Rfam assigns this 181-nucleotide RNA from Conservatibacter flavescens to the family "Lysine riboswitch aptamer". A search with the family's covariance model found it, with a score of 141 bits.
RNA sequence: UACAUAUGUAGAGGCGCAAGCAUUAUAAGUAUUUUUUCUGAGUGGAUAGCGAUGAGGAGAAAAGAAAGGAAUGUUUGCCGAAAUCAGUUAGAAGUCAUUCUAAUUGGUUGGGGGCGUUAUCGAAAAGGUACGUCACUGCCAUAGUAUUACUUAUUAUUCACUAUGGAGCGCUACUGUUAGG
Numbered sequence: 001u002a003c004a005u006a007u008g009u010a011g012a013g014g015c016g017c018a019a020g021c022a023u024u025a026u027a028a029g030u031a032u033u034u035u036u037u038c039u040g041a042g043u044g045g046a047u048a049g050c051g052a053u054g055a056g057g058a059g060a061a062a063a064g065a066a067a068g069g070a071a072u073g074u075u076u077g078c079c080g081a082a083a084u085c086a087g088u089u090a091g092a093a094g095u096c097a098u099u100c101u102a103a104u105u106g107g108u109u110g111g112g113g114g115c116g117u118u119a120u121c122g123a124a125a126a127g128g129u130a131c132g133u134c135a136c137u138g139c140c141a142u143a144g145u146a147u148u149a150c151u152u153a154u155u156a157u158u159c160a161c162u163a164u165g166g167a168g169c170g171c172u173a174c175u176g177u178u179a180g181g
Stems, first nucleotide, its partner, number of pairs: 008174004016078009032063008082109012110137002113134005120127001139166007